[Rfam]
RNA: mir-4867 microRNA precursor family
RNA sequence: CAGGUAGACCUACAUAGGCUGAUUGCGUGCCAGUAUUCACUCGGCGAGCCACGGCCUAGUGGGUUCUUUAUAU
Numbered sequence: 001c002a003g004g005u006a007g008a009c010c011u012a013c014a015u016a017g018g019c020u021g022a023u024u025g026c027g028u029g030c031c032a033g034u035a036u037u038c039a040c041u042c043g044g045c046g047a048g049c050c051a052c053g054g055c056c057u058a059g060u061g062g063g064u065u066c067u068u069u070a071u072a073u
Base pairs, nucleotide, nucleotide: 007065008064009063010062011061012060013059015058016057017056018055019054020053021052025049026048028046029045030044031043032041033040034039